[Rfam]
RNA: Small nucleolar RNA snoR31/Z110/Z27
RNA sequence: UUCAUCAAGUGAUGAACUAUUGAUUAAUCUUAGGACACCAUUGGACACAACCUUCUAAGGUUGUGGGUGAGAAUGCUGUUUAUUCUGAUGAUGAG
Numbered sequence: 001u002u003c004a005u006c007a008a009g010u011g012a013u014g015a016a017c018u019a020u021u022g023a024u025u026a027a028u029c030u031u032a033g034g035a036c037a038c039c040a041u042u043g044g045a046c047a048c049a050a051c052c053u054u055c056u057a058a059g060g061u062u063g064u065g066g067g068u069g070a071g072a073a074u075g076c077u078g079u080u081u082a083u084u085c086u087g088a089u090g091a092u093g094a095g
Stems, first nucleotide, its partner, number of pairs: 001095007044048001